[Rfam]
RNA: G-CSF factor stem-loop destabilising element (SLDE)
RNA sequence: CUCGGUCUGUGCCUCGUGCUGGGCCCUGGCGCAUCAAGAGGUCUCCCACGUGGGGGACAACAUCCCUGUUUAAUAUUUAAACAGCAGUGUUCCCA
Numbered sequence: 001c002u003c004g005g006u007c008u009g010u011g012c013c014u015c016g017u018g019c020u021g022g023g024c025c026c027u028g029g030c031g032c033a034u035c036a037a038g039a040g041g042u043c044u045c046c047c048a049c050g051u052g053g054g055g056g057a058c059a060a061c062a063u064c065c066c067u068g069u070u071u072a073a074u075a076u077u078u079a080a081a082c083a084g085c086a087g088u089g090u091u092c093c094c095a
Base pairs, nucleotide, nucleotide: 004025005024006023007022008021011019012018041058042057043056044055045054046053047052066084067083068082069081070080071079072078073077